RNA sequence: AAUAGUGGUCUGGGGUGCUGAUCAAAUUCGGCUGAGAAAUACCCAUGGAACCUGAAUCAGUUAGUACUGACGUAGGAAGACCGUUUAGUCAACUU
Dot-bracket structure: .....(((((((((.((((((......)))))......)..)))).....((((..((((......))))..))))..)))))............
Shown here is a 95-nucleotide sequence from Lentilactobacillus buchneri, a member of the family "TPP riboswitch aptamer (THI element)". Rfam links the family to the GO term thiamine pyrophosphate binding. The family's consensus secondary structure is taken from published work.